[Rfam]
RNA sequence: AUCGCAACGGCAAGAUCGCCGCUGAGAACCUUCAGGCAGCCUAAAGCGAACAGCGUUUCGGGUUGGUGACCACGGACGUACUGGCACCAACCCACGAAACGCUAAAAAGAAGGUCGGGCUUGCCCGGCCUUUUUUGAU
Dot-bracket structure: .((((...(......(.(((..............))).)..)...))))..(((((((..((((..((.(((.........)))))..))))....)))))))..((((((((((((......))))))))))))...